[Rfam]
RNA sequence: GAGCCCCAUUAUGAAUAACUUUAAGAGUUAAACAUAAAUGAAAACCGGAUAAAUUGCAAGGAACACUGUUAAUUUAACAGUCAAUUUGCAGCCGAGCGUAAUUUAGUGAUAAAUAAGGAUUGCGAAGGUUCAACGACUAAUAGGUGAGUUUAACUAACAAUAAGCCUAACACGAACAUCCGGCAUUAAUUAACCUUUUCUUCAUCAAAGAUAGGAAGAUUAAUGAUGACAUAGUCUGAACAGUAGCGUGAGUUACUG
Numbered sequence: 001g002a003g004c005c006c007c008a009u010u011a012u013g014a015a016u017a018a019c020u021u022u023a024a025g026a027g028u029u030a031a032a033c034a035u036a037a038a039u040g041a042a043a044a045c046c047g048g049a050u051a052a053a054u055u056g057c058a059a060g061g062a063a064c065a066c067u068g069u070u071a072a073u074u075u076a077a078c079a080g081u082c083a084a085u086u087u088g089c090a091g092c093c094g095a096g097c098g099u100a101a102u103u104u105a106g107u108g109a110u111a112a113a114u115a116a117g118g119a120u121u122g123c124g125a126a127g128g129u130u131c132a133a134c135g136a137c138u139a140a141u142a143g144g145u146g147a148g149u150u151u152a153a154c155u156a157a158c159a160a161u162a163a164g165c166c167u168a169a170c171a172c173g174a175a176c177a178u179c180c181g182g183c184a185u186u187a188a189u190u191a192a193c194c195u196u197u198u199c200u201u202c203a204u205c206a207a208a209g210a211u212a213g214g215a216a217g218a219u220u221a222a223u224g225a226u227g228a229c230a231u232a233g234u235c236u237g238a239a240c241a242g243u244a245g246c247g248u249g250a251g252u253u254a255c256u257g
Stems, first nucleotide, its partner, number of pairs: 013021002045182004050177001055090006065081005091129002097122002102117004133236001135235005185222006193214003242255005

Group I catalytic intron: a 257-nucleotide RNA sequence from Leucoagaricus sp. SymC.cos. Rfam describes the family as follows. Group I catalytic introns are large self-splicing ribozymes. A search with the family's covariance model found it, with a score of 68 bits. For this family Rfam cites "Self-splicing of group I introns" (Cech, Annu Rev Biochem, 1990).